A member of the RNA family "PrrF RNA" from Entomomonas asaccharolytica, 162 nucleotides long. The family's RNA type in Rfam is small RNA. A search with the family's covariance model found it, with a score of 92 bits. Rfam's curators write: PrrF RNA is a small RNA involved in iron homeostasis and is found exclusively in Pseudomonas species. NCBI's taxonomy places the organism under Bacteria, Pseudomonadota, Gammaproteobacteria, Pseudomonadales, Entomomonas. The base pairs follow the family's consensus structure, which is taken from published work. On this family, see Wilderman et al., Proc Natl Acad Sci U S A 2004: "Identification of tandem duplicate regulatory small RNAs in Pseudomonas aeruginosa involved in iron homeostasis".

RNA sequence: UUUUCUUGCAAAUGAUAAUUAUUAUCAUUAAUAUAUAACCAAGUUGAUCGCAAGACCAACUGGCAAGUCAAAGCGUUCGAUCUGCUGUUUGAGAUUGUUUGGUUUGUCUCCUCAUCAGGCUAAUCACGGUUUUUACCCAGCAUUUUGCUGGGUAUUUUUUUC
Numbered sequence: 001u002u003u004u005c006u007u008g009c010a011a012a013u014g015a016u017a018a019u020u021a022u023u024a025u026c027a028u029u030a031a032u033a034u035a036u037a038a039c040c041a042a043g044u045u046g047a048u049c050g051c052a053a054g055a056c057c058a059a060c061u062g063g064c065a066a067g068u069c070a071a072a073g074c075g076u077u078c079g080a081u082c083u084g085c086u087g088u089u090u091g092a093g094a095u096u097g098u099u100u101g102g103u104u105u106g107u108c109u110c111c112u113c114a115u116c117a118g119g120c121u122a123a124u125c126a127c128g129g130u131u132u133u134u135a136c137c138c139a140g141c142a143u144u145u146u147g148c149u150g151g152g153u154a155u156u157u158u159u160u161u162c
Base pairs, nucleotide, nucleotide: 042061043060044059045058046057048055049054068102069101070100071099072098110119111118112117134154135153136152137151138150139149140148141147